[Rfam]
RNA sequence: AGUAAGUUUCAGGGUGAGGUGAAAUUCCUCGACUGGCGGUACAGCCCGCGAGCCGCGAAAGCGGUUGAUUAGGUGAGACUCCUAGGCCAACGGUACAGUCCGGAUGAAGAGAAACAAGGA
Numbered sequence: 001a002g003u004a005a006g007u008u009u010c011a012g013g014g015u016g017a018g019g020u021g022a023a024a025u026u027c028c029u030c031g032a033c034u035g036g037c038g039g040u041a042c043a044g045c046c047c048g049c050g051a052g053c054c055g056c057g058a059a060a061g062c063g064g065u066u067g068a069u070u071a072g073g074u075g076a077g078a079c080u081c082c083u084a085g086g087c088c089a090a091c092g093g094u095a096c097a098g099u100c101c102g103g104a105u106g107a108a109g110a111g112a113a114a115c116a117a118g119g120a
Stems, first nucleotide, its partner, number of pairs: 003118001006115005017029003032099002034089002036049004044087002052065003069085005091102003
Dot-bracket structure: ..(..(((((......(((.......)))..[[((((((....[[))))..(((........)))...(((((.......)))))]])).(((....]])))........)))))..)..
A member of the RNA family "FMN riboswitch aptamer (RFN element)" from Alloscardovia macacae, 120 nucleotides long.
NCBI's taxonomy places the organism under Bacteria, Bacillati, Bifidobacteriales, Bifidobacteriaceae, Alloscardovia.
Rfam 15.1 lists 6,230 matches to the family in 5,120 species.